[Rfam]
Rfam assigns this 75-nucleotide sequence from Capsicum annuum to the family "Plastid-ycf2 5UTR RNA". It scores 73 bits against the family's covariance model. From the family's description: Plastid ycf2 is a non-coding RNA (ncRNA) recognised in plastids. It was found in the prime untranslated region (5UTR) of ycf2 genes, it presents a tRNA-like motif which suggests it can be involved in mRNA maturation, particularly involved in defining the precise 5' end of the transcript. Pairs were carried over by alignment from the consensus structure, which was predicted with LocARNA. By type it is a cis-regulatory element. The family has 204 seed sequences and 3,521 matches in Rfam 15.1. The literature on the family includes a 2023 paper in Plant Commun by Richter et al., "Retrograde signaling in plants: A critical review focusing on the GUN pathway and beyond".

RNA sequence: GUGCGUCCAUUAGGAAUUGAAACUCCGAAUUCACCAAUUAUGAGUUGGGCGCUCUAACCAUUCAGACAUGGAUGC
Numbered sequence: 001g002u003g004c005g006u007c008c009a010u011u012a013g014g015a016a017u018u019g020a021a022a023c024u025c026c027g028a029a030u031u032c033a034c035c036a037a038u039u040a041u042g043a044g045u046u047g048g049g050c051g052c053u054c055u056a057a058c059c060a061u062u063c064a065g066a067c068a069u070g071g072a073u074g075c
Stems, first nucleotide, its partner, number of pairs: 003075006012024002040069003045065005051059001